[Rfam]
RNA sequence: GUUUCCGUAGUGUAGUGGUUAUCACGUUCGCCUCACACGCGAAAGGUCCCCGGUUCGAAACCGGGCGGAAACA
Numbered sequence: 001g002u003u004u005c006c007g008u009a010g011u012g013u014a015g016u017g018g019u020u021a022u023c024a025c026g027u028u029c030g031c032c033u034c035a036c037a038c039g040c041g042a043a044a045g046g047u048c049c050c051c052g053g054u055u056c057g058a059a060a061c062c063g064g065g066c067g068g069a070a071a072c073a
Stems, first nucleotide, its partner, number of pairs: 001072007010025003027043005049065005
RNA: tRNA